[Rfam]
RNA sequence: UCGAAGUUUCCAUCUACAAAUGGAUAGAUUUUUGUCUUAGUGUAUACAUCGUUUUGCAACAAAGUAGCAAUACCCAUGUCUUCUUGAGCAGACAUGGGUUAUUGCUACUUU
Number, nucleotide and partner (000 for none) at each position: 001u000002c000003g000004a000005a000006g000007u000008u000009u024010c023011c022012a021013u020014c000015u000016a000017c000018a000019a000020a013021u012022g011023g010024a009025u000026a000027g000028a000029u000030u000031u000032u000033u000034g000035u000036c000037u000038u000039a000040g000041u000042g000043u000044a000045u000046a000047c000048a000049u000050c000051g000052u000053u000054u000055u000056g000057c000058a000059a000060c000061a111062a110063a109064g108065u107066a106067g105068c104069a103070a102071u101072a100073c000074c097075c096076a095077u000078g093079u092080c091081u090082u000083c000084u000085u000086g000087a000088g000089c000090a081091g080092a079093c078094a000095u076096g075097g074098g000099u000100u072101a071102u070103u069104g068105c067106u066107a065108c064109u063110u062111u061

This 111-nucleotide RNA from Musa balbisiana belongs to the Rfam family "Plastid-psbA-1 3UTR RNA". The literature on the family includes a 2023 paper in Plant Commun by Richter et al., "Retrograde signaling in plants: A critical review focusing on the GUN pathway and beyond". The family is grouped with related families in Rfam's "Plastid-psbA 3UTR RNA clan". Rfam classes the family as a cis-regulatory element. Plastid psbA-1 is a non-coding RNA (ncRNA) present in plastids. It was identified in inverted repeat sequences in the 3 prime untranslate region (3UTR) of photosystem II quinone-binding protein (psbA).